[Rfam]
RNA sequence: UCUAGAUCCAUGACGUUGUAAAAAACUGUGUUAUCUAUCUGCAAUUCUAUAAAUGGAUUGAAUAUGACAAUAAGUUUCUGAGAUUCAGG
Numbered sequence: 001u002c003u004a005g006a007u008c009c010a011u012g013a014c015g016u017u018g019u020a021a022a023a024a025a026c027u028g029u030g031u032u033a034u035c036u037a038u039c040u041g042c043a044a045u046u047c048u049a050u051a052a053a054u055g056g057a058u059u060g061a062a063u064a065u066g067a068c069a070a071u072a073a074g075u076u077u078c079u080g081a082g083a084u085u086c087a088g089g
Base pairs, nucleotide, nucleotide: 001089002088003087005085006084007083
RNA: Small nucleolar RNA snoR27